RNA: HIF-1 alpha IRES
RNA sequence: CUCGUCUGAGGGGACGCGAGGACUGUCCUCGCUACCGUCGCGAGCAGUGUCUGGCCAGGCCUUGACAAGCCAGCCGGAGGAGCAACUAGGAACCCGAACCAGAGCCCGGCGAGCGCAGCCUGCAGCUCCCGCCUCGCCGUCCCGGGGGGGUGUCCCGCCUCACACCCCGCCUCUGGACUUGCCCCUUUCUCUGCGCGUGAGGACAGAGCCGGCGCUUAGGCCGGAGCGAGCCCAGGGGCUGCCGGCCGGGAAGACACCGCGGGCACCGAUUCGCCAUG
Numbered sequence: 001c002u003c004g005u006c007u008g009a010g011g012g013g014a015c016g017c018g019a020g021g022a023c024u025g026u027c028c029u030c031g032c033u034a035c036c037g038u039c040g041c042g043a044g045c046a047g048u049g050u051c052u053g054g055c056c057a058g059g060c061c062u063u064g065a066c067a068a069g070c071c072a073g074c075c076g077g078a079g080g081a082g083c084a085a086c087u088a089g090g091a092a093c094c095c096g097a098a099c100c101a102g103a104g105c106c107c108g109g110c111g112a113g114c115g116c117a118g119c120c121u122g123c124a125g126c127u128c129c130c131g132c133c134u135c136g137c138c139g140u141c142c143c144g145g146g147g148g149g150g151u152g153u154c155c156c157g158c159c160u161c162a163c164a165c166c167c168c169g170c171c172u173c174u175g176g177a178c179u180u181g182c183c184c185c186u187u188u189c190u191c192u193g194c195g196c197g198u199g200a201g202g203a204c205a206g207a208g209c210c211g212g213c214g215c216u217u218a219g220g221c222c223g224g225a226g227c228g229a230g231c232c233c234a235g236g237g238g239c240u241g242c243c244g245g246c247c248g249g250g251a252a253g254a255c256a257c258c259g260c261g262g263g264c265a266c267c268g269a270u271u272c273g274c275c276a277u278g
Base pairs, nucleotide, nucleotide: 001013002012003011016032017031018030019029020028021027035059036058082153083152084151086149126148127147128146129145130144179212180211181210183208185206186205190203191202192201222245224243226242227241228240
Dot-bracket structure: (((.......)))..((((((.....))))))..((.....................))......................(((.(.......................................(((((.............)))))).))).........................(((.(.((...(((........))).)).).))).........(.(.(((...........)))).).................................